[Rfam]
RNA sequence: GGGCGAUGACGAAUGUGAUUCAUCAACGUCUCGGUCCUCGUAACGGCGGCAUCGCCGCCUUGCCAACCAUCCUGAUAUAUCACCACCCAUAUUCCGAGUCC
Numbered sequence: 001g002g003g004c005g006a007u008g009a010c011g012a013a014u015g016u017g018a019u020u021c022a023u024c025a026a027c028g029u030c031u032c033g034g035u036c037c038u039c040g041u042a043a044c045g046g047c048g049g050c051a052u053c054g055c056c057g058c059c060u061u062g063c064c065a066a067c068c069a070u071c072c073u074g075a076u077a078u079a080u081c082a083c084c085a086c087c088c089a090u091a092u093u094c095c096g097a098g099u100c101c
Stems, first nucleotide, its partner, number of pairs: 001101004048061002
Small nucleolar RNA Z43: a 101-nucleotide RNA from Musa acuminata.
The family's consensus secondary structure was predicted with PFOLD.
NCBI's taxonomy places the organism under Eukaryota, Liliopsida, Petrosaviidae, Zingiberales, Musa acuminata.
A reference for the family is Chen et al. (2003), "The high diversity of snoRNAs in plants: identification and comparative study of 120 snoRNA genes from Oryza sativa", Nucleic Acids Res.
Its family is annotated with nucleolus and RNA processing in the Gene Ontology.